RNA sequence: CCUUUCAUCAUUUUUGCGAUUUUUGCAAUUGUGUUUGGAAACAAAUUGCAUAGUUGCAAAAGUGAUGAGAGU
Numbered sequence: 001c002c003u004u005u006c007a008u009c010a011u012u013u014u015u016g017c018g019a020u021u022u023u024u025g026c027a028a029u030u031g032u033g034u035u036u037g038g039a040a041a042c043a044a045a046u047u048g049c050a051u052a053g054u055u056g057c058a059a060a061a062g063u064g065a066u067g068a069g070a071g072u
Stems, first nucleotide, its partner, number of pairs: 002071005008065013024050007
Background
This 72-nucleotide sequence from Cryptotermes secundus belongs to the Rfam family "mir-153 microRNA precursor family". The family has 63 seed sequences and 1,565 matches in Rfam 15.1. Lineage of the source: Eukaryota > Bilateria > Pterygota > Cryptotermitinae > Cryptotermes. Pairs were carried over by alignment from the consensus structure, which was predicted with RNAalifold. Rfam links the family to the GO terms miRNA-mediated post-transcriptional gene silencing and RISC complex.